The family of this 129-nucleotide sequence is "Bacteriophage Diversity-Generating Retroelement RNA". The family's RNA type in Rfam is small RNA. The family's consensus secondary structure is taken from published work.
RNA sequence: AACUAUAGUAACGCCACAAGCGUACUAUGUUUGAUCUUUACGAUCAGCUUUUGGUAUGGUGCUUCGUCAAAUACAAAACUUAGAUUUGAUGUAUUGCAGAGUAUUGAAAUAUAGAAACGCAUUGUCAAU
Numbered sequence: 001a002a003c004u005a006u007a008g009u010a011a012c013g014c015c016a017c018a019a020g021c022g023u024a025c026u027a028u029g030u031u032u033g034a035u036c037u038u039u040a041c042g043a044u045c046a047g048c049u050u051u052u053g054g055u056a057u058g059g060u061g062c063u064u065c066g067u068c069a070a071a072u073a074c075a076a077a078a079c080u081u082a083g084a085u086u087u088g089a090u091g092u093a094u095u096g097c098a099g100a101g102u103a104u105u106g107a108a109a110u111a112u113a114g115a116a117a118c119g120c121a122u123u124g125u126c127a128a129u
Stems, first nucleotide, its partner, number of pairs: 001031002004029007013021002060069002084129001086128005095121003104113001105111001